[Rfam]
RNA sequence: GGCGAGGUAGCUCAGCUGGUUAGAGCGUCGGAUUCAUAAUCCGGAGGUCGUGGGAUCAUGCCCCACUCUCGCUA
Numbered sequence: 001g002g003c004g005a006g007g008u009a010g011c012u013c014a015g016c017u018g019g020u021u022a023g024a025g026c027g028u029c030g031g032a033u034u035c036a037u038a039a040u041c042c043g044g045a046g047g048u049c050g051u052g053g054g055a056u057c058a059u060g061c062c063c064c065a066c067u068c069u070c071g072c073u074a
Stems, first nucleotide, its partner, number of pairs: 001073007010026004028044005050066005
The record is a 74-nucleotide RNA from Bacteroidales bacterium WCE2008, which matches "tRNA" in Rfam. By type it is a transfer RNA. The source organism's lineage runs through Bacteria, Pseudomonadati, Bacteroidota, Bacteroidia and Bacteroidales. The family's consensus secondary structure is taken from published work.